Shown here is an 80-nucleotide RNA sequence from Pantoea vagans, a member of the family "sroB RNA". Lineage of the source: Bacteria > Pseudomonadota > Enterobacterales > Erwiniaceae > Pantoea. For this family Rfam cites "RNomics in Escherichia coli detects new sRNA species and indicates parallel transcriptional output in bacteria" (Vogel et al., Nucleic Acids Res, 2003). It scores 68 bits against the family's covariance model. The family's consensus secondary structure was predicted with LocARNA.
RNA sequence: GCGCCAGUAACCCUGGUGAUAACCAAAAUCAUAAACAAAUUCCUCUUUGACGGGCCAAUAGCGAUAUUGGCCUUCUUUUU
Dot-bracket structure: ......((.((....)).))........(....).................(((((((((....))))))))).......
Numbered sequence: 001g002c003g004c005c006a007g008u009a010a011c012c013c014u015g016g017u018g019a020u021a022a023c024c025a026a027a028a029u030c031a032u033a034a035a036c037a038a039a040u041u042c043c044u045c046u047u048u049g050a051c052g053g054g055c056c057a058a059u060a061g062c063g064a065u066a067u068u069g070g071c072c073u074u075c076u077u078u079u080u
Stems, first nucleotide, its partner, number of pairs: 007020002010017002029034001052073009